[Rfam]
RNA sequence: CAAUCAUGAUUUUCAGGUAAGUAAGGAAAGGGAUAGGUUGGCAUCCUAUCCCUUUCCUUACUUACCUGAAAAUCAUGAUUG
Numbered sequence: 001c002a003a004u005c006a007u008g009a010u011u012u013u014c015a016g017g018u019a020a021g022u023a024a025g026g027a028a029a030g031g032g033a034u035a036g037g038u039u040g041g042c043a044u045c046c047u048a049u050c051c052c053u054u055u056c057c058u059u060a061c062u063u064a065c066c067u068g069a070a071a072a073u074c075a076u077g078a079u080u081g
Stems, first nucleotide, its partner, number of pairs: 002080004007075006014068009024058010